[Rfam]
Nucleotides: 104
Stems, first nucleotide, its partner, number of pairs: 001104004014095001016093003023041005043083008061075002
Number, partner (000 for none) and nucleotide at each position: 001104g002103g003102g004101a005000u006000g007000u008000g009000a010000u011000g012000a013000g014095u015000g016093g017092g018091u019000u020000g021000g022000a023041c024040u025039c026038g027037c028000u029000u030000u031000a032000a033000c034000a035000a036000u037027g038026c039025g040024a041023g042000a043083u044082g045081g046080g047079u048078g049077u050076c051000c052000g053000c054000u055000c056000u057000u058000g059000c060000c061075u062074g063000g064000u065000u066000a067000c068000g069000a070000c071000a072000c073000a074062c075061g076050g077049a078048c079047a080046c081045u082044c083043a084000c085000a086000u087000c088000u089000u090000a091018a092017c093016c094000g095014a096000u097000c098000u099000g100000a101004u102003c103002c104001c
The family of this 104-nucleotide RNA sequence from Morus notabilis is "Small nucleolar RNA Z279/snoR105/snoR108".
Rfam classes the family as a C/D-box small nucleolar RNA.
This family includes the plant snoRNAs known as Z279, snoR105 and snoR108.